Shown here is a 130-nucleotide RNA from Atopobacter sp. AH10, a member of the family "Streptococcus sRNA SpR18". Rfam 15.1 lists 63 matches to the family in 54 species. Lineage of the source: Bacteria > Bacillati > Lactobacillales > Carnobacteriaceae > Atopobacter. It is annotated as a small RNA. For this family Rfam cites "Control of virulence by small RNAs in Streptococcus pneumoniae" (Mann et al., PLoS Pathog, 2012). The family's consensus secondary structure was predicted with mfold.
RNA sequence: UUCAAAGCUUGCAGAAGAUAAAAUUAACAACUGGUACUCAAAUGGUACUGGAAGUAAAAAAGAAUAAAUUGAAUAAUAGUUCCAAGUGGUUUACAUUUGGAUAAAAAAUUAGAUCAUAACUUAAGUGUUA
Numbered sequence: 001u002u003c004a005a006a007g008c009u010u011g012c013a014g015a016a017g018a019u020a021a022a023a024u025u026a027a028c029a030a031c032u033g034g035u036a037c038u039c040a041a042a043u044g045g046u047a048c049u050g051g052a053a054g055u056a057a058a059a060a061a062g063a064a065u066a067a068a069u070u071g072a073a074u075a076a077u078a079g080u081u082c083c084a085a086g087u088g089g090u091u092u093a094c095a096u097u098u099g100g101a102u103a104a105a106a107a108a109u110u111a112g113a114u115c116a117u118a119a120c121u122u123a124a125g126u127g128u129u130a
Base pairs, nucleotide, nucleotide: 007032009030010029011028014025035123036122042117043116044115045114050065079102080101082100083099084098085097086096087095088094